[Rfam]
RNA sequence: CUUGAGGAGGGGCGGGUCCCUCAGCCUGGAUUGCGAGAGGGUGCAGGCCAGGCCGAGGGACCCCAACAGUGCAUG
Number, nucleotide and partner (000 for none) at each position: 001c000002u000003u073004g072005a000006g070007g000008a000009g067010g000011g000012g064013c000014g063015g062016g061017u060018c059019c058020c057021u056022c055023a000024g053025c052026c051027u000028g049029g048030a000031u046032u045033g044034c043035g042036a000037g000038a000039g000040g000041g000042u035043g034044c033045a032046g031047g000048c029049c028050a000051g026052g025053c024054c000055g022056a021057g020058g019059g018060a017061c016062c015063c014064c012065a000066a000067c009068a000069g000070u006071g000072c004073a003074u000075g000
The record is a 75-nucleotide sequence from Myotis davidii, which matches "mir-9193 microRNA precursor family" in Rfam. The match comes from Rfam's covariance-model search (71 bits). Pairs were carried over by alignment from the consensus structure, which was predicted with RNAalifold.